[Rfam]
RNA sequence: UGUGAUGUGAUGAUUAUAAACAAUCCCUUGUACGGAAUGUUAUUGCCAUGACAUGACAAACACUUUACACCCAUAGAAUAUGAGCAUCA
Numbered sequence: 001u002g003u004g005a006u007g008u009g010a011u012g013a014u015u016a017u018a019a020a021c022a023a024u025c026c027c028u029u030g031u032a033c034g035g036a037a038u039g040u041u042a043u044u045g046c047c048a049u050g051a052c053a054u055g056a057c058a059a060a061c062a063c064u065u066u067a068c069a070c071c072c073a074u075a076g077a078a079u080a081u082g083a084g085c086a087u088c089a
Base pairs, nucleotide, nucleotide: 003089004088006086007085
This 89-nucleotide RNA sequence from Trifolium subterraneum belongs to the Rfam family "Small nucleolar RNA snoR8a". The family has 7 seed sequences and 956 matches in Rfam 15.1. Its family is annotated with RNA processing and nucleolus in the Gene Ontology.